[Rfam]
This 176-nucleotide RNA sequence from Actinobacteria bacterium OK074 belongs to the Rfam family "Streptomyces-metH RNA". The match comes from Rfam's covariance-model search (68 bits). The organism belongs to Actinomycetes, within Bacteria.
RNA sequence: CCCGUCCGUCCCGUGGACGCCACUGACCGUACGGCCCGCCGGGGGCUACCCUGGCCGGGUGCGCCUUCCGCGGGAAGGUGGGCGGGUGGUCCGGCGGCCGAGCCGUACGUCCCCGCCGAUCCCCGUCACCGGGCGCAAAGCCGACAGCCGUCGCACUCCAGGGAGCAUCUUCCAUG
Numbered sequence: 001c002c003c004g005u006c007c008g009u010c011c012c013g014u015g016g017a018c019g020c021c022a023c024u025g026a027c028c029g030u031a032c033g034g035c036c037c038g039c040c041g042g043g044g045g046c047u048a049c050c051c052u053g054g055c056c057g058g059g060u061g062c063g064c065c066u067u068c069c070g071c072g073g074g075a076a077g078g079u080g081g082g083c084g085g086g087u088g089g090u091c092c093g094g095c096g097g098c099c100g101a102g103c104c105g106u107a108c109g110u111c112c113c114c115g116c117c118g119a120u121c122c123c124c125g126u127c128a129c130c131g132g133g134c135g136c137a138a139a140g141c142c143g144a145c146a147g148c149c150g151u152c153g154c155a156c157u158c159c160a161g162g163g164a165g166c167a168u169c170u171u172c173c174a175u176g
Stems, first nucleotide, its partner, number of pairs: 060137004065132002140154002143152003
The family's RNA type in Rfam is small RNA.